[Rfam]
Notes
The record is a 47-nucleotide sequence from Elachura formosa, which matches "Histone 3' UTR stem-loop" in Rfam. A search with the family's covariance model found it, with a score of 42 bits. The family's consensus secondary structure is taken from published work. NCBI's taxonomy places the organism under Eukaryota, Euteleostomi, Amniota, Neoaves, Elachura. About the family: The mRNAs of metazoan histone genes lack a poly-A tail. 3' end processing occurs at a site between a highly conserved stem-loop (modelled by this family) and a purine rich region around 20 nts downstream (the histone downstream element, or HDE). The stem-loop is bound by a 31 kDa stem-loop binding protein (SLBP - also termed the histone hairpin binding protein, or HBP).
RNA sequence: CCAAAGGCUCUUUUAAGAGCCACCACAUAAACAUCAAAAGGAGCUGU
Numbered sequence: 001c002c003a004a005a006g007g008c009u010c011u012u013u014u015a016a017g018a019g020c021c022a023c024c025a026c027a028u029a030a031a032c033a034u035c036a037a038a039a040g041g042a043g044c045u046g047u
Stems, first nucleotide, its partner, number of pairs: 006021006